A member of the RNA family "mir-8813 microRNA precursor family" from Canis lupus, 97 nucleotides long. The family has 2 seed sequences and 307 matches in Rfam 15.1. The family's consensus secondary structure was predicted with RNAalifold.
[Rfam]
RNA sequence: UGCUGACAUGAGGCUCCGUGGCUGUCACUCUGUCCCAGGACCUCCUGGCCUUUGGGGCACAGGCUGAGUCCCAGUAUAGUUUGUGGGGUCCUGACCC
Numbered sequence: 001u002g003c004u005g006a007c008a009u010g011a012g013g014c015u016c017c018g019u020g021g022c023u024g025u026c027a028c029u030c031u032g033u034c035c036c037a038g039g040a041c042c043u044c045c046u047g048g049c050c051u052u053u054g055g056g057g058c059a060c061a062g063g064c065u066g067a068g069u070c071c072c073a074g075u076a077u078a079g080u081u082u083g084u085g086g087g088g089u090c091c092u093g094a095c096c097c
Base pairs, nucleotide, nucleotide: 002096004094005090006089007088009086011082012081013080014079015078021075022074023073024072027069028068029067030066032064033063034062039058041056042055043054